[Rfam]
This 126-nucleotide sequence from Aotus nancymaae belongs to the Rfam family "Small nucleolar RNA SNORA28". Rfam classes the family as an H/ACA-box small nucleolar RNA. Its family is annotated with RNA processing and nucleolus in the Gene Ontology. Clan: SNORA28 clan. A reference for the family is Huttenhofer et al. (2001), "RNomics: an experimental approach that identifies 201 candidates for novel, small, non-messenger RNAs in mouse", EMBO J. NCBI's taxonomy places the organism under Eukaryota, Opisthokonta, Mammalia, Simiiformes, Aotus. The family's consensus secondary structure was predicted with RNAfold. The match comes from Rfam's covariance-model search (142 bits). Rfam's curators write: ACA28 is a member of the H/ACA class of snoRNA that guide the sites of modification of uridines to pseudouridines.
RNA sequence: AAGCAACACUCUGUGGCAGAUAAUCACAACUGUCUGACACAAUUUGAGCUUGCUAUAGCAAAAAAGUCUAACCUAUUCCGGUGUUCUCUCUCCCGUGAGAUAAACCCUUAUAUAGACUUAAACACU
Numbered sequence: 001a002a003g004c005a006a007c008a009c010u011c012u013g014u015g016g017c018a019g020a021u022a023a024u025c026a027c028a029a030c031u032g033u034c035u036g037a038c039a040c041a042a043u044u045u046g047a048g049c050u051u052g053c054u055a056u057a058g059c060a061a062a063a064a065a066g067u068c069u070a071a072c073c074u075a076u077u078c079c080g081g082u083g084u085u086c087u088c089u090c091u092c093c094c095g096u097g098a099g100a101u102a103a104a105c106c107c108u109u110a111u112a113u114a115g116a117c118u119u120a121a122a123c124a125c126u
Base pairs, nucleotide, nucleotide: 009048010047011046012041013040014039015038017036018035019034020033021032022031064119065118066117067116068115069114070113074112075111076110080106081105082104087100088099089098090097